[Rfam]
RNA sequence: UUUGGGGUGUCAGCAAAACCGUUACCAUUACUGAGUUUAGUAAUGGUAAGGGUUCUUCUGCUACCCCAGCU
Numbered sequence: 001u002u003u004g005g006g007g008u009g010u011c012a013g014c015a016a017a018a019c020c021g022u023u024a025c026c027a028u029u030a031c032u033g034a035g036u037u038u039a040g041u042a043a044u045g046g047u048a049a050g051g052g053u054u055c056u057u058c059u060g061c062u063a064c065c066c067c068a069g070c071u
Stems, first nucleotide, its partner, number of pairs: 007064003011060003017054004022049012
mir-451 microRNA precursor family: a 71-nucleotide RNA from Salvator merianae. Its family is annotated with RISC complex and miRNA-mediated post-transcriptional gene silencing in the Gene Ontology. The literature on the family includes a 2010 paper in Genes Dev by Patrick et al., "Defective erythroid differentiation in miR-451 mutant mice mediated by 14-3-3zeta". The base pairs follow the family's consensus structure, which was predicted with RNAalifold. The family has 22 seed sequences and 658 matches in Rfam 15.1.